[Rfam]
RNA: Lysine riboswitch aptamer
RNA sequence: UACAUCGAAGAGAGGUCGCACUGCUUAUCAGUAGCCUUCAUGAAUUGCUAAAGCAAUGGUGAUUGAGGGUGAAAGGAAUCGGUGCCGAAGUGAUUGAUUGCUUUAGAGGUCAACCGCUGGGGUCUAGCUUAAGAGGCUAGGAACUGUCGCAGUGAAAACAUUGCGGAGCGCUAUCGAAAGU
Numbered sequence: 001u002a003c004a005u006c007g008a009a010g011a012g013a014g015g016u017c018g019c020a021c022u023g024c025u026u027a028u029c030a031g032u033a034g035c036c037u038u039c040a041u042g043a044a045u046u047g048c049u050a051a052a053g054c055a056a057u058g059g060u061g062a063u064u065g066a067g068g069g070u071g072a073a074a075g076g077a078a079u080c081g082g083u084g085c086c087g088a089a090g091u092g093a094u095u096g097a098u099u100g101c102u103u104u105a106g107a108g109g110u111c112a113a114c115c116g117c118u119g120g121g122g123u124c125u126a127g128c129u130u131a132a133g134a135g136g137c138u139a140g141g142a143a144c145u146g147u148c149g150c151a152g153u154g155a156a157a158a159c160a161u162u163g164c165g166g167a168g169c170g171c172u173a174u175c176g177a178a179a180g181u
Base pairs, nucleotide, nucleotide: 006176007175008174011172012171018085019084020083021082022081023080025078026077034070035069036068037067038066039065040064089118090117091116092115094113095112096111097110098109099108119145120144123141124140125139126138127137128136129135147166148165149164150163151162152161153160